Notes: The family of this 41-nucleotide sequence from Alteribacillus bidgolensis is "Ribosomal protein L19 leader". Pairs were carried over by alignment from the consensus structure, which was predicted with CMfinder. A reference for the family is Zengel and Lindahl (1994), "Diverse mechanisms for regulating ribosomal protein synthesis in Escherichia coli", Prog Nucleic Acid Res Mol Biol. Rfam classes the family as a cis-regulatory leader. Rfam links the family to the GO term regulation of gene expression. This family is a putative r-protein leader autoregulatory structure found in B. subtilis and other low-GC Gram-positive bacteria. It is located in the 5' untranslated regions of mRNAs encoding ribosomal protein L19 (rplS). The source organism's lineage runs through Bacteria, Bacillota, Bacilli, Bacillaceae and Alteribacillus.
[Rfam]
RNA sequence: ACGAUGUUCCGCUGCCGUUUAAUGCAAGGCAUGAGCAUUUG
Numbered sequence: 001a002c003g004a005u006g007u008u009c010c011g012c013u014g015c016c017g018u019u020u021a022a023u024g025c026a027a028g029g030c031a032u033g034a035g036c037a038u039u040u041g
Stems, first nucleotide, its partner, number of pairs: 003039007013031004018026001